This 153-nucleotide RNA from Papio anubis belongs to the Rfam family "U4 spliceosomal RNA". Lineage of the source: Eukaryota > Euteleostomi > Sarcopterygii > Mammalia > Papio. Gene Ontology terms of the family: U4 snRNP and spliceosomal tri-snRNP complex assembly. The literature on the family includes a 2019 paper in Science by Charenton et al., "Mechanism of 5' splice site transfer for human spliceosome activation". It is annotated as a spliceosomal small nuclear RNA. Rfam describes the family as follows. U4 small nuclear RNA (U4 snRNA) is a component of the major U2-dependent spliceosome. Clan: U4 clan.

RNA sequence: AGCUUAGCACAGUGGCAGUAUCAUAGGCACUGAGGUUUAUCCGAGGCAUGAUUACUGCUAAUUGAAAACUUUUCCCAAUACCCUGCUGUGAUGACUUGCAACGUAGUCAGCAUUGGCAAGGUGUUUUUGUUUUUGUUUUUGUUUUUUAAAAAA
Dot-bracket structure: ...................(((((.(.(.....((.....))..).))))))................................((((((.(((((........))))).))).)))..................(((((........)))))